[Rfam]
RNA: Group II catalytic intron D1-D4-6
RNA sequence: AAAGUCCCUGUAGGGUAAGGUUUAGCAAACCACCCUUAGCGAGUGUUGCGCGUUGUGCGGAGCCAUCGGGAGAGGAAGUGCUCUCCAGUCAGCAGUGAAAACGGCUAUCAACGAGGUGAACAAACAACGUGAAGCGUACACAGCGAAUACUGUAGGCCAUAAGGGCACCGUGGCCCUGAAGCACUGGCAUCGCUCCGAAAGGCAGUUCCGUUCUGGCGAGGUUUGUAACGCGAUCGAAGCCCACAUAGACCAGCCGUUAUUGCAAGGCUGCGAAGAGACGGCGGAGUUAUCAAGUC
Numbered sequence: 001a002a003a004g005u006c007c008c009u010g011u012a013g014g015g016u017a018a019g020g021u022u023u024a025g026c027a028a029a030c031c032a033c034c035c036u037u038a039g040c041g042a043g044u045g046u047u048g049c050g051c052g053u054u055g056u057g058c059g060g061a062g063c064c065a066u067c068g069g070g071a072g073a074g075g076a077a078g079u080g081c082u083c084u085c086c087a088g089u090c091a092g093c094a095g096u097g098a099a100a101a102c103g104g105c106u107a108u109c110a111a112c113g114a115g116g117u118g119a120a121c122a123a124a125c126a127a128c129g130u131g132a133a134g135c136g137u138a139c140a141c142a143g144c145g146a147a148u149a150c151u152g153u154a155g156g157c158c159a160u161a162a163g164g165g166c167a168c169c170g171u172g173g174c175c176c177u178g179a180a181g182c183a184c185u186g187g188c189a190u191c192g193c194u195c196c197g198a199a200a201g202g203c204a205g206u207u208c209c210g211u212u213c214u215g216g217c218g219a220g221g222u223u224u225g226u227a228a229c230g231c232g233a234u235c236g237a238a239g240c241c242c243a244c245a246u247a248g249a250c251c252a253g254c255c256g257u258u259a260u261u262g263c264a265a266g267g268c269u270g271c272g273a274a275g276a277g278a279c280g281g282c283g284g285a286g287u288u289a290u291c292a293a294g295u296c
Base pairs, nucleotide, nucleotide: 012036013035014034015033019031020030021029022028023265025263026262039144040143043141044140045139046138047136048135049131050130051129052128053127054126055125056124059121192287193286194285195284196283197282208281209280210279211278213277214276215241216240217239220235221234222233223232246275250272251270252269253268254267255266